[Rfam]
RNA sequence: UUAAAAUAAAAUAUUUGCUUUCAUAUAAUCUCGAUAAUAUGGUUCGGGAGUUUCUACAGGAUAACCGUAAACUAUCCUACUAUGGGUCAGGAUAACAGAUAA
Numbered sequence: 001u002u003a004a005a006a007u008a009a010a011a012u013a014u015u016u017g018c019u020u021u022c023a024u025a026u027a028a029u030c031u032c033g034a035u036a037a038u039a040u041g042g043u044u045c046g047g048g049a050g051u052u053u054c055u056a057c058a059g060g061a062u063a064a065c066c067g068u069a070a071a072c073u074a075u076c077c078u079a080c081u082a083u084g085g086g087u088c089a090g091g092a093u094a095a096c097a098g099a100u101a102a
Stems, first nucleotide, its partner, number of pairs: 020086006029049006058078006

The family of this 102-nucleotide RNA sequence from Tissierella praeacuta is "Purine riboswitch aptamer". The source organism's lineage runs through Bacteria, Bacillati, Bacillota, Tissierellia and Tissierella praeacuta. Its family is annotated with purine nucleobase biosynthetic process in the Gene Ontology.